[Rfam]
RNA sequence: GAAUUUUAUUAAUAAAAUCAUUUUAGAAACUAUUUGGUGUCCACUUAUUUUAAACAAACUGG
Numbered sequence: 001g002a003a004u005u006u007u008a009u010u011a012a013u014a015a016a017a018u019c020a021u022u023u024u025a026g027a028a029a030c031u032a033u034u035u036g037g038u039g040u041c042c043a044c045u046u047a048u049u050u051u052a053a054a055c056a057a058a059c060u061g062g
Base pairs, nucleotide, nucleotide: 014024015023016022017021026041027040029038030037031036